[Rfam]
RNA: Guanidine-II riboswitch aptamer (mini-ykkC)
Organism: Pseudomonas sp. MRSN 12121
RNA sequence: ACGCGGGGACGACCCCGCGGCUCGCAAGAGUCAUUAAUCUGGGGACGACCCCG
Numbered sequence: 001a002c003g004c005g006g007g008g009a010c011g012a013c014c015c016c017g018c019g020g021c022u023c024g025c026a027a028g029a030g031u032c033a034u035u036a037a038u039c040u041g042g043g044g045a046c047g048a049c050c051c052c053g
Stems, first nucleotide, its partner, number of pairs: 002019007040053005